[Rfam]
RNA sequence: GAGCAAUGAUGAAAAGGAUUUACUACCGACCUUUAUAACUGUGAAGGCUUCUACAUUUGAUCUGAGCUCA
Numbered sequence: 001g002a003g004c005a006a007u008g009a010u011g012a013a014a015a016g017g018a019u020u021u022a023c024u025a026c027c028g029a030c031c032u033u034u035a036u037a038a039c040u041g042u043g044a045a046g047g048c049u050u051c052u053a054c055a056u057u058u059g060a061u062c063u064g065a066g067c068u069c070a
Base pairs, nucleotide, nucleotide: 001069002068003067004066013034014033015032016031017030019028

A member of the RNA family "Small nucleolar RNA U2-30" from Leptonychotes weddellii, 70 nucleotides long.
It is annotated as a C/D-box small nucleolar RNA.
On this family, see Tycowski et al., Curr Biol 2004: "Guide RNAs with 5' Caps and Novel Box C/D snoRNA-like Domains for Modification of snRNAs in Metazoa".
The match comes from Rfam's covariance-model search (87 bits).